[Rfam]
RNA sequence: AAGCCAGCUAUUGAAUCUGCUUAUCUGUAUGUGUUUGUGCAGAAAUUUAGAAAAUGUUGGCAAUAGUAAUGCCAUGGUACGAGCCUUAAGGACAUGAUAUCACAGUCAUUAAGGUCCCUGAAAAUGGCUACACAU
Numbered sequence: 001a002a003g004c005c006a007g008c009u010a011u012u013g014a015a016u017c018u019g020c021u022u023a024u025c026u027g028u029a030u031g032u033g034u035u036u037g038u039g040c041a042g043a044a045a046u047u048u049a050g051a052a053a054a055u056g057u058u059g060g061c062a063a064u065a066g067u068a069a070u071g072c073c074a075u076g077g078u079a080c081g082a083g084c085c086u087u088a089a090g091g092a093c094a095u096g097a098u099a100u101c102a103c104a105g106u107c108a109u110u111a112a113g114g115u116c117c118c119u120g121a122a123a124a125u126g127g128c129u130a131c132a133c134a135u
Stems, first nucleotide, its partner, number of pairs: 003061005016043005071128004083115007091107003
Shown here is a 135-nucleotide RNA from Heterocephalus glaber, a member of the family "Small nucleolar RNA SNORA33". The family's consensus secondary structure was predicted with PFOLD. ACA33 is a member of the H/ACA class of snoRNA that guide the sites of modification of uridines to pseudouridines. NCBI's taxonomy places the organism under Eukaryota, Amniota, Mammalia, Eutheria, Heterocephalus.